[Rfam]
A member of the RNA family "Small nucleolar RNA snoR100" from Rhododendron simsii, 108 nucleotides long.
The match comes from Rfam's covariance-model search (96 bits).
The source organism's lineage runs through Eukaryota, Gunneridae, Pentapetalae, Ericaceae and Rhododendron.

RNA sequence: UAAUGAAGGAAGUAUGGUAAUGUGCACAGAAAUUGAAUAAGGUCUCUAGGCCUGCCCUCUCUGAUGCCAUUUGGCUUUGAUUUGAGGACAUGGUUUCGCAGCAAAAUA
Numbered sequence: 001u002a003a004u005g006a007a008g009g010a011a012g013u014a015u016g017g018u019a020a021u022g023u024g025c026a027c028a029g030a031a032a033u034u035g036a037a038u039a040a041g042g043u044c045u046c047u048a049g050g051c052c053u054g055c056c057c058u059c060u061c062u063g064a065u066g067c068c069a070u071u072u073g074g075c076u077u078u079g080a081u082u083u084g085a086g087g088a089c090a091u092g093g094u095u096u097c098g099c100a101g102c103a104a105a106a107u108a
Stems, first nucleotide, its partner, number of pairs: 012025004040091001042089003050081001052079001054075003
The family's consensus secondary structure was predicted with WAR. Rfam links the family to the GO terms RNA processing and nucleolus.